[Rfam]
RNA sequence: GCGUUCGAGGAGCGUUGCAGCCCUUGCGCCUGUCCCGCAGGCCCAGAGGUGAGGCUCGAACCCCAGGGCGGCAGGCCCUGCCUUCCAACUGCGCUCACCCACC
Numbered sequence: 001g002c003g004u005u006c007g008a009g010g011a012g013c014g015u016u017g018c019a020g021c022c023c024u025u026g027c028g029c030c031u032g033u034c035c036c037g038c039a040g041g042c043c044c045a046g047a048g049g050u051g052a053g054g055c056u057c058g059a060a061c062c063c064c065a066g067g068g069c070g071g072c073a074g075g076c077c078c079u080g081c082c083u084u085c086c087a088a089c090u091g092c093g094c095u096c097a098c099c100c101a102c103c
Stems, first nucleotide, its partner, number of pairs: 003061006021049002024046003
RNA: SAH (S-adenosyl-L-homocysteine) riboswitch aptamer
Organism: Hylemonella gracilis